[Rfam]
The family of this 132-nucleotide RNA sequence from Streptomyces sp. NL15-2K is "Streptomyces-metH RNA". NCBI's taxonomy places the organism under Bacteria, Bacillati, Actinomycetota, Streptomycetaceae, Streptomyces. It scores 88 bits against the family's covariance model.
RNA sequence: CUCGUCCGUCCCGUGGACUCCCUGACCAACCGUUGCCCGUCCCGGUUACCCUGGGCGGCGUGCGCCCACCGCGGAAGGUGUCGCGGGCGCGUAAAGCCGACAGCCGUCGCACCUAAGGGAGCCCCUUACAUG
Numbered sequence: 001c002u003c004g005u006c007c008g009u010c011c012c013g014u015g016g017a018c019u020c021c022c023u024g025a026c027c028a029a030c031c032g033u034u035g036c037c038c039g040u041c042c043c044g045g046u047u048a049c050c051c052u053g054g055g056c057g058g059c060g061u062g063c064g065c066c067c068a069c070c071g072c073g074g075a076a077g078g079u080g081u082c083g084c085g086g087g088c089g090c091g092u093a094a095a096g097c098c099g100a101c102a103g104c105c106g107u108c109g110c111a112c113c114u115a116a117g118g119g120a121g122c123c124c125c126u127u128a129c130a131u132g
Stems, first nucleotide, its partner, number of pairs: 061093004066086002069083001096110002099108003